[Rfam]
mir-129 microRNA precursor family: a 74-nucleotide sequence from Hymenochirus boettgeri.
On this family, see Lagos-Quintana et al., Curr Biol 2002: "Identification of tissue-specific microRNAs from mouse".
It scores 82 bits against the family's covariance model.
The family has 56 seed sequences and 1,242 matches in Rfam 15.1.
Rfam links the family to the GO terms synapse, gene silencing by miRNA and long-term synaptic potentiation.
Lineage of the source: Eukaryota > Gnathostomata > Dipnotetrapodomorpha > Pipidae > Hymenochirus.
RNA sequence: UCAAAACUUUUUGCGGUCUGGGCUUGCUGUUCUUAUCAAAGCAUCCAGGAAGCCCUUAUCCCAAAAAGAAUUUG
Numbered sequence: 001u002c003a004a005a006a007c008u009u010u011u012u013g014c015g016g017u018c019u020g021g022g023c024u025u026g027c028u029g030u031u032c033u034u035a036u037c038a039a040a041g042c043a044u045c046c047a048g049g050a051a052g053c054c055c056u057u058a059u060c061c062c063a064a065a066a067a068g069a070a071u072u073u074g
Base pairs, nucleotide, nucleotide: 007068008067009066010065011064012063013062015060016059017058020055021054022053023052025050027048028047